[Rfam]
RNA: Eukaryotic large subunit ribosomal RNA, nucleotides 1920 to 2422
RNA sequence: UAGAACAAUGUAGAUAAGGGAAGUCGGCAAAAUAGAUCCGUAACUUCGGGAUAAGGAUUGGCUCUAACGACUGAGUAUAUUGGGGGGUUAUUUGAAAUUUUUGGAUUUGUUUAAAGUUGAUUUUGGGAAACUAGAAUUGACUUUUUACGAGACUGAAAAUGGAGAAUUUCUCUAGAUUUAAUUUAAUUAAAUCAUCCAAUAUACACUUAACAGUCAAGUUAGAACUGGUACGGACAAGGGGAAUCUGACUGUCUAAUUAAAACAUAGCAUUGUGAUGGCCAGAAAGUGGUGUUGACACAAUGUGAUUUCUGCCCAGUGCUCUGAAUGUCAAAGUGAAGAAAUUCAACCAAGCGCGGGUAAACGGCGGGAGUAACUAUGACUCUCUUAAGGUAGCCAAAUGCCUCGUCAUCUAAUUAGUGACGCGCAUGAAUGGAUUAACGAGAUUCCCACUGUCCCUAUCUACUAUCUAGCGAAACCACAGCGUGGGGAACGGGCCACGCAAA
Numbered sequence: 001u002a003g004a005a006c007a008a009u010g011u012a013g014a015u016a017a018g019g020g021a022a023g024u025c026g027g028c029a030a031a032a033u034a035g036a037u038c039c040g041u042a043a044c045u046u047c048g049g050g051a052u053a054a055g056g057a058u059u060g061g062c063u064c065u066a067a068c069g070a071c072u073g074a075g076u077a078u079a080u081u082g083g084g085g086g087g088u089u090a091u092u093u094g095a096a097a098u099u100u101u102u103g104g105a106u107u108u109g110u111u112u113a114a115a116g117u118u119g120a121u122u123u124u125g126g127g128a129a130a131c132u133a134g135a136a137u138u139g140a141c142u143u144u145u146u147a148c149g150a151g152a153c154u155g156a157a158a159a160u161g162g163a164g165a166a167u168u169u170c171u172c173u174a175g176a177u178u179u180a181a182u183u184u185a186a187u188u189a190a191a192u193c194a195u196c197c198a199a200u201a202u203a204c205a206c207u208u209a210a211c212a213g214u215c216a217a218g219u220u221a222g223a224a225c226u227g228g229u230a231c232g233g234a235c236a237a238g239g240g241g242a243a244u245c246u247g248a249c250u251g252u253c254u255a256a257u258u259a260a261a262a263c264a265u266a267g268c269a270u271u272g273u274g275a276u277g278g279c280c281a282g283a284a285a286g287u288g289g290u291g292u293u294g295a296c297a298c299a300a301u302g303u304g305a306u307u308u309c310u311g312c313c314c315a316g317u318g319c320u321c322u323g324a325a326u327g328u329c330a331a332a333g334u335g336a337a338g339a340a341a342u343u344c345a346a347c348c349a350a351g352c353g354c355g356g357g358u359a360a361a362c363g364g365c366g367g368g369a370g371u372a373a374c375u376a377u378g379a380c381u382c383u384c385u386u387a388a389g390g391u392a393g394c395c396a397a398a399u400g401c402c403u404c405g406u407c408a409u410c411u412a413a414u415u416a417g418u419g420a421c422g423c424g425c426a427u428g429a430a431u432g433g434a435u436u437a438a439c440g441a442g443a444u445u446c447c448c449a450c451u452g453u454c455c456c457u458a459u460c461u462a463c464u465a466u467c468u469a470g471c472g473a474a475a476c477c478a479c480a481g482c483g484u485g486g487g488g489a490a491c492g493g494g495c496c497a498c499g500c501a502a503a
Stems, first nucleotide, its partner, number of pairs: 001469004010463007018455003035059005044049001060226002063223006069215005075204009084172003091165001097160008106151005113144014227231001239448007246440002250264003267303008278290004307434003311365003316362002318358004323354001326353003334345004366384006385389001405421005482499005